[Rfam]
RNA sequence: AACGACCGGUCGGGCACCAGUGUGUCCGACCACCAAGUGGAGGCUCCGAUCUCCCACCUGCUCGGCCACAAGGCCGACGGGUCCCGGUCAGACGGCGAGCACCGGCAGCAUGCCGGUGGACACCGUCCGAUGCGCCCCGCGGAAUAACGCGGCGGUGCUCCCGGUUGUGAGGAGCCCCGCCUGUGUCCCGUACGGGGCGUUUUCU
Dot-bracket structure: ...((((((..((............))((((..((.((((((........)).)))).)).((((((....))))))..)))))))))).(((((....((((...........))))....)))))......(((((((((.....((((((((.(((((.........))))).))))).)))..)))..)))))).......
Overview
The family of this 205-nucleotide RNA sequence from Actinacidiphila bryophytorum is "Streptomyces RNA 1601". Lineage of the source: Bacteria > Bacillati > Kitasatosporales > Streptomycetaceae > Actinacidiphila. Rfam's curators write: Identified by deep sequencing of transcriptome at the end of exponential growth phase.